[Rfam]
RNA sequence: CAGUCUGGAAAGUGUCCCGGUCAUUCGGGGCCGCCGAAGGGGUAAAGCUCUCAGGCGCUAGGGACAGACGG
Numbered sequence: 001c002a003g004u005c006u007g008g009a010a011a012g013u014g015u016c017c018c019g020g021u022c023a024u025u026c027g028g029g030g031c032c033g034c035c036g037a038a039g040g041g042g043u044a045a046a047g048c049u050c051u052c053a054g055g056c057g058c059u060a061g062g063g064a065c066a067g068a069c070g071g
Base pairs, nucleotide, nucleotide: 001071003069004068005067006066007065014031015030016029017028033056034055035054036052037051040050041049042048
Glycine riboswitch aptamer: a 71-nucleotide RNA sequence from Sphingomonas lutea.